MIR6152 microRNA precursor family: a 96-nucleotide RNA from Nicotiana attenuata. NCBI's taxonomy places the organism under Eukaryota, Streptophytina, Magnoliopsida, Solanales, Nicotiana. Pairs were carried over by alignment from the consensus structure, which was predicted with RNAalifold.
RNA sequence: UGGAAAGACUACUGUAUUCGACCGUAUUCACGGCGUAAAACAGGAAAUUACACUGUUUUUAAACGGAAAGUGAAUCAAUCAACAUAAUAGACUCCU
Numbered sequence: 001u002g003g004a005a006a007g008a009c010u011a012c013u014g015u016a017u018u019c020g021a022c023c024g025u026a027u028u029c030a031c032g033g034c035g036u037a038a039a040a041c042a043g044g045a046a047a048u049u050a051c052a053c054u055g056u057u058u059u060u061a062a063a064c065g066g067a068a069a070g071u072g073a074a075u076c077a078a079u080c081a082a083c084a085u086a087a088u089a090g091a092c093u094c095c096u
Stems, first nucleotide, its partner, number of pairs: 002095003009090003013086003017082002020080002024076001026075006034065003037059007